[Rfam]
RNA sequence: AAAUUGAAGAGUUUGAUCAUGGCUCAGAUUGAACGCUGGCGGCAGGCCUAACACAUGCAAGUCGAGCGGAAACGAGUUAUCUGACCCUUCGGGUGACGAUAACGGCGUCGAGCGGCGGACGGGUGAGUAAUGCCUGGGAAAUUGCCCUGAUGUGGGGGAUAACCAUUGGAAACGAUGGCUAAUACCGCAUAAUAGCUUCGGCUCAAAGAGGGGGACCUUCGGGCCUCUCGCGUCAGGAUAUGCCCAGGUGGGAUUAGCUAGUUGGUGAGGUAAGGGCUCACCAAGGCGACGAUCCCUAGCUGGUCUGAGAGGAUGAUCAGCCACACUGGAACUGAGACACGGUCCAGACUCCUACGGGAGGCAGCAGUGGGGAAUAUUGCACAAUGGGCGCAAGCCUGAUGCAGCCAUGCCGCGUGUAUGAAGAAGGCCUUCGGGUUGUAAAGUACUUUCAGCAGUGAGGAAGGUGGGUAUGUUAAUAGCAUACUCAUUUGACGUUAGCUGCAGAAGAAGCACCGGCUAACUCCGUGCCAGCAGCCGCGGUAAUACGGAGGGUGCGAGCGUUAAUCGGAAUUACUG
Dot-bracket structure: ........(((((.......))))).((((.((((((.(((((((((....(((.(((..(((..((.((.(.(.(((....))).).)..................))..)))))......(((......(((((((..((...(((((((.(.((.....((((((....))))))......)).).....(((....)))....((((((..........)))))).)))))))..)).)))))))(((....(((..((((((((.......)))))))))))......)))..((((((((....))))...))))))).(((((............))))).((((....))))...)))))).).....(.(((...(((((....))))).)))).)).))))))..((((......((((....)))).....))))...(.(((((...(......((................))......)....)))))....)..(((((......(((((.....((....)).......)))))))))).))))))))))..........
Bacterial small subunit ribosomal RNA: a 576-nucleotide part of an RNA from Vibrio aquimaris. The literature on the family includes a 2001 paper in Science by Yusupov et al., "Crystal structure of the ribosome at 5.5 A resolution". The match comes from Rfam's covariance-model search (1554 bits).